[Rfam]
RNA sequence: AAAGUGGCCUAUGCAACCGCCAUGGACUGGUUCAUUGCCGUUUGUUACGCUUUG
Dot-bracket structure: .((..(((.((.(((((.((.(((((....))))).)).))).)))).))))).
Editing element of GABA-3 exon 9: a 54-nucleotide RNA sequence from Microcebus murinus. Taxonomically the source falls in Microcebus (Eukaryota, Chordata, Tetrapoda, Boreoeutheria). The family's RNA type in Rfam is cis-regulatory element. Rfam 15.1 lists 4,208 matches to the family in 654 species.